This 178-nucleotide RNA from Litchfieldia stipae belongs to the Rfam family "Lysine riboswitch aptamer". Rfam's curators write: Riboswitches are metabolite binding domains within certain messenger RNAs that serve as precision sensors for their corresponding targets. Allosteric rearrangement of mRNA structure is mediated by ligand binding, and this results in modulation of gene expression. This family includes riboswitches that sense lysine in a number of genes involved in lysine metabolism, including lysC. The organism belongs to Litchfieldia, within Bacteria. The base pairs follow the family's consensus structure, which is taken from published work. A reference for the family is Mandal et al. (2003), "Riboswitches Control Fundamental Biochemical Pathways in Bacillus subtilis and Other Bacteria", Cell.
RNA sequence: AGUGAAGAUAGAGGUGCAAGCUUCAAGAGUAAGUAAUUAGAGGAGAAUGAGCUCCAAUGAUAGUUGCUGAAAGGGGAGAUUGCCGAAGUAAAGAAAGACUCACUACUUUCUUUGCUGGUUCUGUGUUUAAGAAAUGCAGAAUUGUCAAGAUGUUAGAUCUUGGAGAGCUAUCUCACGG
Numbered sequence: 001a002g003u004g005a006a007g008a009u010a011g012a013g014g015u016g017c018a019a020g021c022u023u024c025a026a027g028a029g030u031a032a033g034u035a036a037u038u039a040g041a042g043g044a045g046a047a048u049g050a051g052c053u054c055c056a057a058u059g060a061u062a063g064u065u066g067c068u069g070a071a072a073g074g075g076g077a078g079a080u081u082g083c084c085g086a087a088g089u090a091a092a093g094a095a096a097g098a099c100u101c102a103c104u105a106c107u108u109u110c111u112u113u114g115c116u117g118g119u120u121c122u123g124u125g126u127u128u129a130a131g132a133a134a135u136g137c138a139g140a141a142u143u144g145u146c147a148a149g150a151u152g153u154u155a156g157a158u159c160u161u162g163g164a165g166a167g168c169u170a171u172c173u174c175a176c177g178g
Stems, first nucleotide, its partner, number of pairs: 006173006016083004021078004032068008087116011117143011145163007